A member of the RNA family "Transposase-2 RNA" from Micromonospora sonchi, 67 nucleotides long. Lineage of the source: Bacteria > Bacillati > Actinomycetota > Actinomycetes > Micromonospora.
RNA sequence: GAAGCGUCAACCCGGCACGGCGAUCGCCGAUCAGACCGGGACCGUCCCACCGCAAGGUAGGACUACU
Numbered sequence: 001g002a003a004g005c006g007u008c009a010a011c012c013c014g015g016c017a018c019g020g021c022g023a024u025c026g027c028c029g030a031u032c033a034g035a036c037c038g039g040g041a042c043c044g045u046c047c048c049a050c051c052g053c054a055a056g057g058u059a060g061g062a063c064u065a066c067u
Stems, first nucleotide, its partner, number of pairs: 011040005018029004044063004049058003
Dot-bracket structure: ..........(((((..((((....))))......)))))...((((.(((....))).))))....